Glycine riboswitch aptamer: a 110-nucleotide sequence from Croceicoccus marinus. It scores 60 bits against the family's covariance model. NCBI's taxonomy places the organism under Bacteria, Pseudomonadota, Alphaproteobacteria, Erythrobacteraceae, Croceicoccus.
RNA sequence: CUGACCCGUGUGGGAGAGAGCGCGCGAUUCGCCAUUUUUGGCGGGGGUGCGCGCCGCCGAAGGAGCAACCGCCCCGGAAACUCUCAGGCAACAGGGACCAUGUGGGUCGA
Numbered sequence: 001c002u003g004a005c006c007c008g009u010g011u012g013g014g015a016g017a018g019a020g021c022g023c024g025c026g027a028u029u030c031g032c033c034a035u036u037u038u039u040g041g042c043g044g045g046g047g048u049g050c051g052c053g054c055c056g057c058c059g060a061a062g063g064a065g066c067a068a069c070c071g072c073c074c075c076g077g078a079a080a081c082u083c084u085c086a087g088g089c090a091a092c093a094g095g096g097a098c099c100a101u102g103u104g105g106g107u108c109g110a
Base pairs, nucleotide, nucleotide: 006105007104008103009102010101011100012099013098020054021053022052023051024050025049026048056089057088058087059085060084063083064082065081069077070076